Rfam assigns this 89-nucleotide RNA sequence from beta proteobacterium AAP65 to the family "Burkholderia RNA 7 (anti-hemB)".
It is annotated as a small RNA.
The match comes from Rfam's covariance-model search (62 bits).
This RNA motif was identified by computational search in b-proteobacteria Burkholderia.
On this family, see Weinberg et al., Nucleic Acids Res 2007: "Identification of 22 candidate structured RNAs in bacteria using the CMfinder comparative genomics pipeline".
RNA sequence: UCCCUGCUUUUCCUCCCUGAGCAGGUGCCUUAGCGUGAUGACAGCGAUAAGGCUUACCCGCCCCGGUCCUUGGAUCGGGGCUUUUUUUU
Numbered sequence: 001u002c003c004c005u006g007c008u009u010u011u012c013c014u015c016c017c018u019g020a021g022c023a024g025g026u027g028c029c030u031u032a033g034c035g036u037g038a039u040g041a042c043a044g045c046g047a048u049a050a051g052g053c054u055u056a057c058c059c060g061c062c063c064c065g066g067u068c069c070u071u072g073g074a075u076c077g078g079g080g081c082u083u084u085u086u087u088u089u
Stems, first nucleotide, its partner, number of pairs: 003025006027053006060081008